The record is a 94-nucleotide RNA sequence from Enterococcus faecalis, which matches "SAM-III riboswitch aptamer (SMK box)" in Rfam. The sequence is in the family's curated seed alignment. Gene Ontology terms of the family: methionine adenosyltransferase activity and regulation of translational initiation. Taxonomically the source falls in Enterococcus faecalis (Bacteria, Bacillota, Bacilli, Lactobacillales).
RNA sequence: UUGUUACAAGUUCCCGAAAGGAUUUAGCAAGUAAUUGUCGUUACUUACUAAAGAUGCCUUGUAACCGAAACUAUUUAGGGGGAAUAACAUUAUG
Numbered sequence: 001u002u003g004u005u006a007c008a009a010g011u012u013c014c015c016g017a018a019a020g021g022a023u024u025u026a027g028c029a030a031g032u033a034a035u036u037g038u039c040g041u042u043a044c045u046u047a048c049u050a051a052a053g054a055u056g057c058c059u060u061g062u063a064a065c066c067g068a069a070a071c072u073a074u075u076u077a078g079g080g081g082g083a084a085u086a087a088c089a090u091u092a093u094g
Stems, first nucleotide, its partner, number of pairs: 011084005018060004023052005065079002